[Rfam]
RNA sequence: AGUUUUGUGCGGUGGCAGUAUCAUAGCUAAUGAAGUUCAUCUGAGGCGCGAUUACUGCUAAUUAAAAUGUUUUGAACUAUGUGGCUGUUAUUACCAGUCAAAAGUCACGUCUACAGAAAUUGAAAACGUAAUACUAGG
Numbered sequence: 001a002g003u004u005u006u007g008u009g010c011g012g013u014g015g016c017a018g019u020a021u022c023a024u025a026g027c028u029a030a031u032g033a034a035g036u037u038c039a040u041c042u043g044a045g046g047c048g049c050g051a052u053u054a055c056u057g058c059u060a061a062u063u064a065a066a067a068u069g070u071u072u073u074g075a076a077c078u079a080u081g082u083g084g085c086u087g088u089u090a091u092u093a094c095c096a097g098u099c100a101a102a103a104g105u106c107a108c109g110u111c112u113a114c115a116g117a118a119a120u121u122g123a124a125a126a127c128g129u130a131a132u133a134c135u136a137g138g
Base pairs, nucleotide, nucleotide: 020052021051022050024048026047027046028045034042035041081114082113083112084111086109087108088107090105091104092103127138129136130135